[Rfam]
RNA: SAM-I/IV (S-adenosyl methionine) riboswitch aptamer
RNA sequence: AGUUAACAUCAGGAGUGGUUUCGUAGUUGAAACCCGCCAACCGAGCCCAGAUAAAUCAUGGUCACGGUGGUUAGAGCCUUAAACGCUAGAUGUGCCUAGGAAAAUAGGAAACAUAAAGCCGCCUGA
Number, nucleotide and partner (000 for none) at each position: 001a000002g000003u000004u000005a000006a093007c092008a091009u090010c089011a000012g000013g000014a000015g035016u000017g034018g033019u032020u031021u030022c029023g028024u000025a000026g000027u000028u023029g022030a021031a020032a019033c018034c017035c015036g071037c070038c069039a000040a000041c067042c066043g065044a000045g062046c061047c000048c000049a000050g000051a000052u000053a000054a000055a000056u000057c000058a000059u000060g000061g046062u045063c000064a000065c043066g042067g041068u000069g038070g037071u036072u000073a000074g000075a000076g000077c000078c000079u000080u000081a000082a000083a000084c000085g000086c000087u000088a000089g010090a009091u008092g007093u006094g000095c108096c107097u106098a105099g000100g000101a000102a000103a000104a000105u098106a097107g096108g095109a000110a000111a000112c000113a000114u000115a000116a000117a000118g000119c000120c000121g000122c000123c000124u000125g000126a000